[Rfam]
RNA sequence: AGCCGCUGAUGAAAUUGAUUCUGCCAAAUGAGUUACAGUGAUAUUACCCUUUCCGUUCCUAUACCAUCUGAGGUU
Numbered sequence: 001a002g003c004c005g006c007u008g009a010u011g012a013a014a015u016u017g018a019u020u021c022u023g024c025c026a027a028a029u030g031a032g033u034u035a036c037a038g039u040g041a042u043a044u045u046a047c048c049c050u051u052u053c054c055g056u057u058c059c060u061a062u063a064c065c066a067u068c069u070g071a072g073g074u075u
Base pairs, nucleotide, nucleotide: 001075002074003073004072
RNA: Small nucleolar RNA SNORD47
Organism: Aphelocoma coerulescens